The record is an 80-nucleotide RNA sequence from Nocardioides perillae, which matches "Actino-pnp RNA" in Rfam. A search with the family's covariance model found it, with a score of 51 bits. The family's consensus secondary structure is taken from published work. The source organism's lineage runs through Bacteria, Bacillati, Actinomycetota, Propionibacteriales and Nocardioides. By type it is a cis-regulatory element.
[Rfam]
RNA sequence: CCCGGUCCUCGGUAGUGGCUCUCGGAGCCGCCCGCCCCACGGGGCCGGCGUGCGGCCGCGGGCCUCGAUCGAAGACCGGC
Numbered sequence: 001c002c003c004g005g006u007c008c009u010c011g012g013u014a015g016u017g018g019c020u021c022u023c024g025g026a027g028c029c030g031c032c033c034g035c036c037c038c039a040c041g042g043g044g045c046c047g048g049c050g051u052g053c054g055g056c057c058g059c060g061g062g063c064c065u066c067g068a069u070c071g072a073a074g075a076c077c078g079g080c
Base pairs, nucleotide, nucleotide: 002079003078004077005076006075007074009072010071011070012069013068017064018063019062020061021060023058024057025056029054030053031052